[Rfam]
About this RNA: This 160-nucleotide sequence from Zea mays belongs to the Rfam family "MIR398 microRNA precursor family". Lineage of the source: Eukaryota > Tracheophyta > Euphyllophyta > Petrosaviidae > Zea. The family's consensus secondary structure was predicted with WAR. Its family is annotated with miRNA-mediated post-transcriptional gene silencing and RISC complex in the Gene Ontology.
RNA sequence: GCAGUUCCGGCGGGGGCGAACUGAGAACACAUGAGAAUAAUGAGAUGAGAUUGCUCGCCUCGCGGUACGGUUCGUGCUGGCCUGGACCACCGUCGUCGCCGUUCAUCUUGUACGCAUAAUAAUGCUGCAUGUGUUCUCAGGUCGCCCCCGCAGGGCCUUC
Numbered sequence: 001g002c003a004g005u006u007c008c009g010g011c012g013g014g015g016g017c018g019a020a021c022u023g024a025g026a027a028c029a030c031a032u033g034a035g036a037a038u039a040a041u042g043a044g045a046u047g048a049g050a051u052u053g054c055u056c057g058c059c060u061c062g063c064g065g066u067a068c069g070g071u072u073c074g075u076g077c078u079g080g081c082c083u084g085g086a087c088c089a090c091c092g093u094c095g096u097c098g099c100c101g102u103u104c105a106u107c108u109u110g111u112a113c114g115c116a117u118a119a120u121a122a123u124g125c126u127g128c129a130u131g132u133g134u135u136c137u138c139a140g141g142u143c144g145c146c147c148c149c150g151c152a153g154g155g156c157c158u159u160c
Base pairs, nucleotide, nucleotide: 007154008153011150012149013148014147016145017144018143019142023138024137025136026135027134028133029132030131031130032129